Shown here is a 75-nucleotide part of an RNA, a member of the family "Archaeal large subunit ribosomal RNA". The match comes from Rfam's covariance-model search (2437 bits).
RNA sequence: AAUUCGGCAAGUUAGCCCCGUACGUUCGCAAUAUGGGGUGCCUAUCGUCUUGCUACGAUAGGUCGCAGUGUCUAG
Numbered sequence: 001a002a003u004u005c006g007g008c009a010a011g012u013u014a015g016c017c018c019c020g021u022a023c024g025u026u027c028g029c030a031a032u033a034u035g036g037g038g039u040g041c042c043u044a045u046c047g048u049c050u051u052g053c054u055a056c057g058a059u060a061g062g063u064c065g066c067a068g069u070g071u072c073u074a075g
Stems, first nucleotide, its partner, number of pairs: 015039005024029001040063009064068001